Shown here is a 98-nucleotide sequence from Neobacillus piezotolerans, a member of the family "SAM riboswitch aptamer (S box leader)". The organism belongs to Neobacillus, within Bacteria.
RNA sequence: UUCUUAUCAAGAGAGGUUGAGGGACUGGCCCUAUGACACCUCGGCAGCGGACUUUUUGUCUAUGCCAAUUCCAGCAAGCGAUGCUUGAUAGAUGAGAA
Numbered sequence: 001u002u003c004u005u006a007u008c009a010a011g012a013g014a015g016g017u018u019g020a021g022g023g024a025c026u027g028g029c030c031c032u033a034u035g036a037c038a039c040c041u042c043g044g045c046a047g048c049g050g051a052c053u054u055u056u057u058g059u060c061u062a063u064g065c066c067a068a069u070u071c072c073a074g075c076a077a078g079c080g081a082u083g084c085u086u087g088a089u090a091g092a093u094g095a096g097a098a
Stems, first nucleotide, its partner, number of pairs: 001098008013042005021031003025074004043066004049061004070090001075087005

About the family: The SAM riboswitch is found upstream of a number of genes which code for proteins involved in methionine or cysteine biosynthesis in Gram-positive bacteria.